[Rfam]
RNA sequence: AGUGCAAGCCGACUUGUCGCUGGCCAUUCCGAAUUCUUUCGGAAUUGGAAAGAGGAAAGUCCGGGCAACAUAGAGCGCCAUACUUCCUAACAGGAAGGCAGCUUGUUGGCGACGACAAGCUGACAGACAGUGCCGCAGAAAAUAUACCGCCCCGAUCUCAUUUGGGAUUGGGGUAAGGGUGAAAAGGUGGAGUAAGAGCCCACCGCCCCAACAGCGAUGAAGGGGGCACGGUAAACCUUAUGGGUUGAAAGACCAAAUAGGUUCCGCCCUGGGACUUGUUCCAGACAAGGUUGCUCGCCUUGAUGCGGAACGGGUAGGUCGAUUGAGCGCUGGUGUAAACCUGCGCCUAGAUAGAUGGCAGGUAAAUCCCCAAAAAGGGAGGAACAGAACCCGGCUUAUAGGCUUGCACUUUUU
Numbered sequence: 001a002g003u004g005c006a007a008g009c010c011g012a013c014u015u016g017u018c019g020c021u022g023g024c025c026a027u028u029c030c031g032a033a034u035u036c037u038u039u040c041g042g043a044a045u046u047g048g049a050a051a052g053a054g055g056a057a058a059g060u061c062c063g064g065g066c067a068a069c070a071u072a073g074a075g076c077g078c079c080a081u082a083c084u085u086c087c088u089a090a091c092a093g094g095a096a097g098g099c100a101g102c103u104u105g106u107u108g109g110c111g112a113c114g115a116c117a118a119g120c121u122g123a124c125a126g127a128c129a130g131u132g133c134c135g136c137a138g139a140a141a142a143u144a145u146a147c148c149g150c151c152c153c154g155a156u157c158u159c160a161u162u163u164g165g166g167a168u169u170g171g172g173g174u175a176a177g178g179g180u181g182a183a184a185a186g187g188u189g190g191a192g193u194a195a196g197a198g199c200c201c202a203c204c205g206c207c208c209c210a211a212c213a214g215c216g217a218u219g220a221a222g223g224g225g226g227c228a229c230g231g232u233a234a235a236c237c238u239u240a241u242g243g244g245u246u247g248a249a250a251g252a253c254c255a256a257a258u259a260g261g262u263u264c265c266g267c268c269c270u271g272g273g274a275c276u277u278g279u280u281c282c283a284g285a286c287a288a289g290g291u292u293g294c295u296c297g298c299c300u301u302g303a304u305g306c307g308g309a310a311c312g313g314g315u316a317g318g319u320c321g322a323u324u325g326a327g328c329g330c331u332g333g334u335g336u337a338a339a340c341c342u343g344c345g346c347c348u349a350g351a352u353a354g355a356u357g358g359c360a361g362g363u364a365a366a367u368c369c370c371c372a373a374a375a376a377g378g379g380a381g382g383a384a385c386a387g388a389a390c391c392c393g394g395c396u397u398a399u400a401g402g403c404u405u406g407c408a409c410u411u412u413u414u
Stems, first nucleotide, its partner, number of pairs: 001410010011399001012363007020052002024048003028044001057397003061394005066247004073296004078243005083097005098124001099122010125238002130236002132232003147178002149174011186204005205227001206225004212219002251320004261311006287301005327346004332341003

The record is a 414-nucleotide RNA sequence from Mariniradius saccharolyticus, which matches "Bacterial RNase P class A" in Rfam. It scores 273 bits against the family's covariance model. Gene Ontology terms of the family: tRNA processing, ribonuclease P activity and dimeric ribonuclease P complex. The family's RNA type in Rfam is ribozyme.